[Rfam]
RNA sequence: AGAGGUGAGAGCGAUCUGGCUGCGACAUCUGUCACCCCAUUGAUCGCCAGGGUGGAUUCGGCUGAUCUGGCUGGCUAGGCAGGUGUCCCCUUCCUCCCUCACCGCUCCAUGUGCAUCCCUCCCGAAGCUGUGCGCUCAGUCGAAGAGGACGACCAUCCCCGAUAGGGGAGGACCGCUCUUCAGUCAAGGGUAUACGAGUAGCUGUGCUCCCCUGCUAGAACCUCCAAACAAGCUCUCAAGGUCCAUUUGUAGGAGGAUGUAGGGUAGUCAAAAAAAAAAAAAGAAAAAGUCAAAGAGAAAAUU
Numbered sequence: 001a002g003a004g005g006u007g008a009g010a011g012c013g014a015u016c017u018g019g020c021u022g023c024g025a026c027a028u029c030u031g032u033c034a035c036c037c038c039a040u041u042g043a044u045c046g047c048c049a050g051g052g053u054g055g056a057u058u059c060g061g062c063u064g065a066u067c068u069g070g071c072u073g074g075c076u077a078g079g080c081a082g083g084u085g086u087c088c089c090c091u092u093c094c095u096c097c098c099u100c101a102c103c104g105c106u107c108c109a110u111g112u113g114c115a116u117c118c119c120u121c122c123c124g125a126a127g128c129u130g131u132g133c134g135c136u137c138a139g140u141c142g143a144a145g146a147g148g149a150c151g152a153c154c155a156u157c158c159c160c161g162a163u164a165g166g167g168g169a170g171g172a173c174c175g176c177u178c179u180u181c182a183g184u185c186a187a188g189g190g191u192a193u194a195c196g197a198g199u200a201g202c203u204g205u206g207c208u209c210c211c212c213u214g215c216u217a218g219a220a221c222c223u224c225c226a227a228a229c230a231a232g233c234u235c236u237c238a239a240g241g242u243c244c245a246u247u248u249g250u251a252g253g254a255g256g257a258u259g260u261a262g263g264g265u266a267g268u269c270a271a272a273a274a275a276a277a278a279a280a281a282a283g284a285a286a287a288a289g290u291c292a293a294a295g296a297g298a299a300a301a302u303u
Base pairs, nucleotide, nucleotide: 002107003106005102006101007100008099009098011096013093014092018090019089024087025086026085027084028083029082030081031080032079033078035074036073037070038069039068042067043066044065045064046062047061048060116171117170118168119167120166121165122139124137125136127135128134140162141161142160147158148157149156203271207267208266210264211263212262213261214260215259222255223254224253225252228250229249230248231247232246